Shown here is a 200-nucleotide RNA from Blautia sp. An46, a member of the family "Group II catalytic intron D1-D4-5". Group II introns are found in rRNA, tRNA and mRNA of organelles in fungi, plants and protists, and also in mRNA in bacteria. A search with the family's covariance model found it, with a score of 174 bits. Gene Ontology term of the family: Group II intron splicing. NCBI's taxonomy places the organism under Bacteria, Bacillota, Lachnospirales, Lachnospiraceae, Blautia. A reference for the family is Bonen and Vogel (2001), "The ins and outs of group II introns", Trends Genet.
RNA sequence: AACAACUUAUUUUCCGAGAGGUGGAAUGACAGGGUAACGCCUUGAAACGCCUCCUUUGAUACUCCGAAUAGCGUCUCACAGUUGCACAUCGUGAGAGGUUAUAAGCUCGGUGAAGUCGGCUGAGAGCCACCCUAACGCGUAAUGGCGAGGAACUGCGAACCAGAGGUGGUCGAGUGGAUGAUAGGCCGGAAGUCUAUAAA
Numbered sequence: 001a002a003c004a005a006c007u008u009a010u011u012u013u014c015c016g017a018g019a020g021g022u023g024g025a026a027u028g029a030c031a032g033g034g035u036a037a038c039g040c041c042u043u044g045a046a047a048c049g050c051c052u053c054c055u056u057u058g059a060u061a062c063u064c065c066g067a068a069u070a071g072c073g074u075c076u077c078a079c080a081g082u083u084g085c086a087c088a089u090c091g092u093g094a095g096a097g098g099u100u101a102u103a104a105g106c107u108c109g110g111u112g113a114a115g116u117c118g119g120c121u122g123a124g125a126g127c128c129a130c131c132c133u134a135a136c137g138c139g140u141a142a143u144g145g146c147g148a149g150g151a152a153c154u155g156c157g158a159a160c161c162a163g164a165g166g167u168g169g170u171c172g173a174g175u176g177g178a179u180g181a182u183a184g185g186c187c188g189g190a191a192g193u194c195u196a197u198a199a200a
Stems, first nucleotide, its partner, number of pairs: 018053006031043004054192004064110004068102005074096006081089001117188005125179001127177004131150003137146002154173001156172002159170004